[Rfam]
RNA sequence: AAAUGAAUUUUUGUGUCUAAUGAUGAAGAUUAUGGGGCAGAUUUUGAGUUGAAAGCAUUCAUUUUCAGCACUGAUUACAUUUCAUUACACAAAGGCUGAAGACACUGGUUAUUUA
Dot-bracket structure: .........((.((((((...........((.((.((..(..((.(.((((((..........)))))).).)))......)).)...).)).......)))))).)).......